[Rfam]
RNA sequence: UGUGACAAGGGCAAACUUGCUGAAAAGCAAGGACGCAAAGCUACAGGUCCUAAAGUGGAUAUCUGCUUGGAUGGCUGUGCUGCCGAAA
Number, nucleotide and partner (000 for none) at each position: 001u088002g000003u085004g084005a000006c000007a000008a000009g000010g000011g036012c035013a000014a000015a000016c031017u030018u029019g028020c027021u026022g000023a000024a000025a000026a021027g020028c019029a018030a017031g016032g000033a000034c074035g012036c011037a000038a000039a081040g080041c079042u000043a000044c077045a076046g075047g072048u071049c070050c000051u000052a000053a000054a000055g000056u000057g000058g000059a000060u000061a000062u000063c000064u000065g000066c000067u000068u000069g000070g049071a048072u047073g000074g034075c046076u045077g044078u000079g041080c040081u039082g000083c000084c004085g003086a000087a000088a001